[Rfam]
Nucleotides: 098
Stems, first nucleotide, its partner, number of pairs: 001098008013044005021033003030074001045069004050065002052061003078087003
Number, partner (000 for none) and nucleotide at each position: 001098c002097u003096c004095u005094u006093a007092u008091u009000c010000a011000g012000a013044g014043c015042a016041g017040u018000g019000g020000a021033g022032a023031u024000a025000c026000a027000a028000a029000g030074g031023a032022u033021c034000u035000g036000a037000g038000a039000a040017g041016c042015u043014g044013c045069g046068g047067c048066a049000a050065c051064c052061c053060c054059u055000g056000a057000a058000c059054a060053g061052g062000a063000a064051g065050g066048u067047g068046c069045c070000a071000a072000c073000c074030u075000g076000a077000g078087c079086g080085a081000g082000u083000c084000a085080u086079c087078g088000a089000a090000c091008a092007a093006u094005a095004a096003g097002a098001g
The family of this 98-nucleotide RNA from Mediterraneibacter torques is "SAM riboswitch aptamer (S box leader)". On this family, see Grundy and Henkin, Mol Microbiol 1998: "The S box regulon: a new global transcription termination control system for methionine and cysteine biosynthesis genes in gram-positive bacteria". Taxonomically the source falls in Mediterraneibacter torques (Bacteria, Bacillati, Clostridia, Lachnospiraceae).